[Rfam]
RNA sequence: AUAUAAGAUAGAGGUCGCAAUAAUAAAGAGUAUUAUUAAUGAGGUAAGCACGAUGAUUUAAUAAAAAAGGUAUUAUUGCCGAAAUAUAUACUUAAUGCUUUAAGAGUAUAUGUUGGGUUUGUAUAUAACAUAUGCAAAACUGCCACAAUACUUAUGUGGUGAGCUAUCUUUGUG
Numbered sequence: 001a002u003a004u005a006a007g008a009u010a011g012a013g014g015u016c017g018c019a020a021u022a023a024u025a026a027a028g029a030g031u032a033u034u035a036u037u038a039a040u041g042a043g044g045u046a047a048g049c050a051c052g053a054u055g056a057u058u059u060a061a062u063a064a065a066a067a068a069g070g071u072a073u074u075a076u077u078g079c080c081g082a083a084a085u086a087u088a089u090a091c092u093u094a095a096u097g098c099u100u101u102a103a104g105a106g107u108a109u110a111u112g113u114u115g116g117g118u119u120u121g122u123a124u125a126u127a128a129c130a131u132a133u134g135c136a137a138a139a140c141u142g143c144c145a146c147a148a149u150a151c152u153u154a155u156g157u158g159g160u161g162a163g164c165u166a167u168c169u170u171u172g173u174g
Stems, first nucleotide, its partner, number of pairs: 006169006017079009033064007083114011115141002118138008143159005

Lysine riboswitch aptamer: a 174-nucleotide RNA from Clostridium baratii. Pairs were carried over by alignment from the consensus structure, which is taken from published work. The literature on the family includes a 2003 paper in Genes Dev by Sudarsan et al., "An mRNA structure in bacteria that controls gene expression by binding lysine". Taxonomically the source falls in Clostridium baratii (Bacteria, Clostridia, Clostridiaceae, Clostridium).